The record is a 110-nucleotide sequence from Terrihabitans soli, which matches "EcpR1" in Rfam. It scores 64 bits against the family's covariance model. The organism belongs to Terrihabitans, within Bacteria. About the family: Perviously named SmelC291, SmrC10, or Sra33. According to its overproduction phenotype it was renamed Elongated Cell Phenotype RNA1. Induced by stress,EcpR1 negatively regulates cell cycle master regulatory genes dnaA and gcrA at post-transcriptional level by base pairing between its strongly conserved GC-rich loop and the target mRNAs.
[Rfam]
RNA sequence: UGGCCUUACGGGAACUUACAGGUCCGCCGCAUCUCCUGUGUCUCGUGAGGUCGGUCGGUAGGGGACGGUCUGGUGGCCUCAAACUGAUGGCCGUCCCCUCCGGCCCCACU
Numbered sequence: 001u002g003g004c005c006u007u008a009c010g011g012g013a014a015c016u017u018a019c020a021g022g023u024c025c026g027c028c029g030c031a032u033c034u035c036c037u038g039u040g041u042c043u044c045g046u047g048a049g050g051u052c053g054g055u056c057g058g059u060a061g062g063g064g065a066c067g068g069u070c071u072g073g074u075g076g077c078c079u080c081a082a083a084c085u086g087a088u089g090g091c092c093g094u095c096c097c098c099u100c101c102g103g104c105c106c107c108a109c110u
Stems, first nucleotide, its partner, number of pairs: 003051008017040006053105006061097003